[Rfam]
RNA sequence: UCUUGUAGCACUAAAGUGCUUAUAGUGCAGGCAAUGUUUAGUCGUCUACUGCAUUAUGAGCACUUCAAGUCCUGCAAG
Dot-bracket structure: ....((((.(((.(((((((((((((((.((.(.............).)))))))))))))))))..))).))))...
Numbered sequence: 001u002c003u004u005g006u007a008g009c010a011c012u013a014a015a016g017u018g019c020u021u022a023u024a025g026u027g028c029a030g031g032c033a034a035u036g037u038u039u040a041g042u043c044g045u046c047u048a049c050u051g052c053a054u055u056a057u058g059a060g061c062a063c064u065u066c067a068a069g070u071c072c073u074g075c076a077a078g
Stems, first nucleotide, its partner, number of pairs: 005075004010070003014065015030050002033047001

mir-17 microRNA precursor family: a 78-nucleotide sequence from Ornithorhynchus anatinus. Lineage of the source: Eukaryota > Opisthokonta > Dipnotetrapodomorpha > Amniota > Ornithorhynchus. Rfam's curators write: This family represents the microRNA (miRNA) precursor mir-17, family, which includes mir-20, mir-91, and mir-103. miRNAs are transcribed as ~70nt precursors (modelled here) and subsequently processed by the Dicer enzyme to give a ~22nt product. A reference for the family is Ambros (2001), "microRNAs: tiny regulators with great potential", Cell. Gene Ontology terms of the family: miRNA-mediated post-transcriptional gene silencing and RISC complex.